[Rfam]
RNA sequence: GAUGGCAGUGACGACUCGGUAAUAUUCAAGCUCAACAGACCAAAUCACAGGUCUCUCUGUACAUGAGAUUGAUCUGUAUGCCGAUUACCCAGCUGAACCGAGCCAUC
Numbered sequence: 001g002a003u004g005g006c007a008g009u010g011a012c013g014a015c016u017c018g019g020u021a022a023u024a025u026u027c028a029a030g031c032u033c034a035a036c037a038g039a040c041c042a043a044a045u046c047a048c049a050g051g052u053c054u055c056u057c058u059g060u061a062c063a064u065g066a067g068a069u070u071g072a073u074c075u076g077u078a079u080g081c082c083g084a085u086u087a088c089c090c091a092g093c094u095g096a097a098c099c100g101a102g103c104c105a106u107c
Stems, first nucleotide, its partner, number of pairs: 001107006